[Rfam]
RNA: Small nucleolar RNA SNORD17
Organism: Penelope pileata
RNA sequence: GUGAGGUGAUGAUGAAGUUUAUCCAUUCUCUGAGUGCAGUGGCACUGCCCUCCUGCAGCACCCCGAUUCCUGUUCUAGGGUCUGGAUGUGGUGCAGCCUCCAGAGACCCUGCAGUCUCCCAGUGUCCUACUGGGGGCUGCUGUGGUGUGUGGCUGGCUGCCUGCAGGAGUGCAGCGGUGCCAGCAGGGUCAGAGCCCCUCUUUGGGGGGGGCUCUGUCCCCACUGGGACGAGGGAUGACAUCUGAUCAC
Numbered sequence: 001g002u003g004a005g006g007u008g009a010u011g012a013u014g015a016a017g018u019u020u021a022u023c024c025a026u027u028c029u030c031u032g033a034g035u036g037c038a039g040u041g042g043c044a045c046u047g048c049c050c051u052c053c054u055g056c057a058g059c060a061c062c063c064c065g066a067u068u069c070c071u072g073u074u075c076u077a078g079g080g081u082c083u084g085g086a087u088g089u090g091g092u093g094c095a096g097c098c099u100c101c102a103g104a105g106a107c108c109c110u111g112c113a114g115u116c117u118c119c120c121a122g123u124g125u126c127c128u129a130c131u132g133g134g135g136g137c138u139g140c141u142g143u144g145g146u147g148u149g150u151g152g153c154u155g156g157c158u159g160c161c162u163g164c165a166g167g168a169g170u171g172c173a174g175c176g177g178u179g180c181c182a183g184c185a186g187g188g189u190c191a192g193a194g195c196c197c198c199u200c201u202u203u204g205g206g207g208g209g210g211g212c213u214c215u216g217u218c219c220c221c222a223c224u225g226g227g228a229c230g231a232g233g234g235a236u237g238a239c240a241u242c243u244g245a246u247c248a249c
Stems, first nucleotide, its partner, number of pairs: 010248004017241002020238001023234002026232003030227002034223002039184002042181001043179006050171001051168007059090003064085001068080004093160006106146002111140006118134007186220003190216004195211006